RNA sequence: CUCUUAUUCAGAGUGGCGGAGAGUGAAGGCUCUGUGAAGCUACGGCAACCCCUGAAAGAUGGAAGGUGCCAACCUGAGCGAAGUUUUACUUCGAGCAAUAAGAG
Numbered sequence: 001c002u003c004u005u006a007u008u009c010a011g012a013g014u015g016g017c018g019g020a021g022a023g024u025g026a027a028g029g030c031u032c033u034g035u036g037a038a039g040c041u042a043c044g045g046c047a048a049c050c051c052c053u054g055a056a057a058g059a060u061g062g063a064a065g066g067u068g069c070c071a072a073c074c075u076g077a078g079c080g081a082a083g084u085u086u087u088a089c090u091u092c093g094a095g096c097a098a099u100a101a102g103a104g
Stems, first nucleotide, its partner, number of pairs: 001104008013043005021032003029075001044070004049066002051062002079093006
This 104-nucleotide sequence from Abiotrophia defectiva belongs to the Rfam family "SAM riboswitch aptamer (S box leader)". Taxonomically the source falls in Abiotrophia defectiva (Bacteria, Bacillota, Bacilli, Aerococcaceae). It is one of the family's seed sequences.